[Rfam]
Alphaproteobacteria transfer-messenger RNA: a 354-nucleotide RNA sequence from Jannaschia rubra. Taxonomically the source falls in Jannaschia (Bacteria, Pseudomonadota, Alphaproteobacteria, Roseobacteraceae). The match comes from Rfam's covariance-model search (289 bits). Clan: tRNA clan. Rfam links the family to the GO term RNA catabolic process. Pairs were carried over by alignment from the consensus structure, which is taken from published work.
RNA sequence: CCACUUGAACCGCGCGGGCACCGCGCCUAUCUUCGGGGUGUCUCCCUCGGGGGACUAUGGCGAUAAACGCGCCCGUAAUAAGCGGUUCGGACCCGGGGGCGGUACCCGGCGACUCCACCAACAUCCCGGUAUUGGGGGAUCAUGGGGUCGAAACAGGAUCGACGGACGUCUAAAGGGGUAAUGCUUUCGCUCGGUGAGAUACCACCGUUAUCGGUUCAAAAUGUACAGUUGCCAAUACCAACCGUGCUCCGAUGGCGAUGGCCGCGUAAGCGACCGGACCUAUCGAAACUUAAGUCCUUGCGCCUAGCAGUGUAAGGCGGGGUUCGCAGGCACCUGGCAACAGAAGCCUGCACU
Numbered sequence: 001c002c003a004c005u006u007g008a009a010c011c012g013c014g015c016g017g018g019c020a021c022c023g024c025g026c027c028u029a030u031c032u033u034c035g036g037g038g039u040g041u042c043u044c045c046c047u048c049g050g051g052g053g054a055c056u057a058u059g060g061c062g063a064u065a066a067a068c069g070c071g072c073c074c075g076u077a078a079u080a081a082g083c084g085g086u087u088c089g090g091a092c093c094c095g096g097g098g099g100c101g102g103u104a105c106c107c108g109g110c111g112a113c114u115c116c117a118c119c120a121a122c123a124u125c126c127c128g129g130u131a132u133u134g135g136g137g138g139a140u141c142a143u144g145g146g147g148u149c150g151a152a153a154c155a156g157g158a159u160c161g162a163c164g165g166a167c168g169u170c171u172a173a174a175g176g177g178g179u180a181a182u183g184c185u186u187u188c189g190c191u192c193g194g195u196g197a198g199a200u201a202c203c204a205c206c207g208u209u210a211u212c213g214g215u216u217c218a219a220a221a222u223g224u225a226c227a228g229u230u231g232c233c234a235a236u237a238c239c240a241a242c243c244g245u246g247c248u249c250c251g252a253u254g255g256c257g258a259u260g261g262c263c264g265c266g267u268a269a270g271c272g273a274c275c276g277g278a279c280c281u282a283u284c285g286a287a288a289c290u291u292a293a294g295u296c297c298u299u300g301c302g303c304c305u306a307g308c309a310g311u312g313u314a315a316g317g318c319g320g321g322g323u324u325c326g327c328a329g330g331c332a333c334c335u336g337g338c339a340a341c342a343g344a345a346g347c348c349u350g351c352a353c354u
Stems, first nucleotide, its partner, number of pairs: 040055005059191005069184002071179004083168002087165003093109005110150007192207004198217002201215003320335004326351006